[Rfam]
RNA sequence: AUUAAAUAAAGACCUCCUAAUAUUAUUUGAAACAGAUAACACUGAAUUAGUUUGAAUUUGAUUUUCAUCUAAUAUCUUUAUUUAAUGAACUCCUAAACUUUUUCAUAAUAAUCUCCUUCAAAAGUCGCCUGUAUGGGUGGCUUUUAU
Numbered sequence: 001a002u003u004a005a006a007u008a009a010a011g012a013c014c015u016c017c018u019a020a021u022a023u024u025a026u027u028u029g030a031a032a033c034a035g036a037u038a039a040c041a042c043u044g045a046a047u048u049a050g051u052u053u054g055a056a057u058u059u060g061a062u063u064u065u066c067a068u069c070u071a072a073u074a075u076c077u078u079u080a081u082u083u084a085a086u087g088a089a090c091u092c093c094u095a096a097a098c099u100u101u102u103u104c105a106u107a108a109u110a111a112u113c114u115c116c117u118u119c120a121a122a123a124g125u126c127g128c129c130u131g132u133a134u135g136g137g138u139g140g141c142u143u144u145u146a147u
Stems, first nucleotide, its partner, number of pairs: 001086011121144009
Shown here is a 147-nucleotide RNA sequence from Streptococcus pneumoniae, a member of the family "Cia-dependent small RNA csRNA1".
The pairing is the family consensus, mapped onto this sequence.
The literature on the family includes a 2007 paper in Mol Microbiol by Halfmann et al., "Identification of the genes directly controlled by the response regulator CiaR in Streptococcus pneumoniae: five out of 15 promoters drive expression of small non-coding RNAs".
It scores 72 bits against the family's covariance model.